[Rfam]
RNA sequence: UGCGAUGAGUCGAGAGGGACCAGGCAACUUCGGUUGUUCCGCUGCGGCGGCUAGUGGUCAUUUUUCGAAGCGGGGUACAAUGUUGCCGGAUUGCAACGUGCCUGGUCGGAUGCAUUGUGGAGUGC
Number, nucleotide and partner (000 for none) at each position: 001u000002g000003c000004g000005a000006u000007g000008a000009g000010u000011c000012g000013a000014g000015a000016g000017g000018g059019a058020c057021c056022a055023g038024g037025c036026a035027a034028c033029u000030u000031c000032g000033g028034u027035u026036g025037u024038u023039c050040c049041g048042c047043u000044g000045c000046g000047g042048c041049g040050g039051c000052u000053a000054g000055u022056g021057g020058u019059c018060a000061u000062u000063u000064u000065u000066c000067g000068a000069a000070g000071c000072g000073g000074g102075g101076u100077a099078c098079a000080a000081u000082g097083u096084u095085g094086c093087c000088g000089g000090a000091u000092u000093g086094c085095a084096a083097c082098g078099u077100g076101c075102c074103u000104g000105g000106u000107c000108g000109g000110a000111u000112g125113c124114a123115u122116u121117g000118u000119g000120g000121a116122g115123u114124g113125c112
Rfam assigns this 125-nucleotide RNA from Ligilactobacillus ruminis to the family "Enterococcus sRNA 68 (Lacto-3 RNA)". A reference for the family is Innocenti et al. (2015), "Whole-genome mapping of 5' RNA ends in bacteria by tagged sequencing: a comprehensive view in Enterococcus faecalis", RNA. The sequence is in the family's curated seed alignment. The source organism's lineage runs through Bacteria, Bacillati, Lactobacillales, Ligilactobacillus and Ligilactobacillus ruminis. By type it is a small RNA. The base pairs follow the family's consensus structure, which is taken from published work.